[Rfam]
The family of this 53-nucleotide sequence from Gossypium trilobum is "Plastid-atpF group II-D1 intron". Lineage of the source: Eukaryota > Streptophyta > Malvaceae > Malvoideae > Gossypium. Rfam describes the family as follows. Plastid atpF is a non-coding RNA (ncRNA) recognised in plastids. It has been reported in the intron group II-D1 region of ATP synthase (atpF) genes. It scores 56 bits against the family's covariance model. Its family is annotated with Group II intron splicing in the Gene Ontology.
Nucleotides: 053
Stems, first nucleotide, its partner, number of pairs: 011033007
Number, partner (000 for none) and nucleotide at each position: 001000a002000a003000a004000u005000a006000u007000u008000u009000u010000u011033u012032c013031g014030a015029u016028a017027u018000a019000a020000a021000a022000c023000a024000c025000u026000c027017g028016u029015g030014u031013u032012g033011a034000u035000a036000a037000a038000a039000c040000g041000a042000u043000u044000u045000a046000a047000g048000c049000u050000u051000c052000u053000u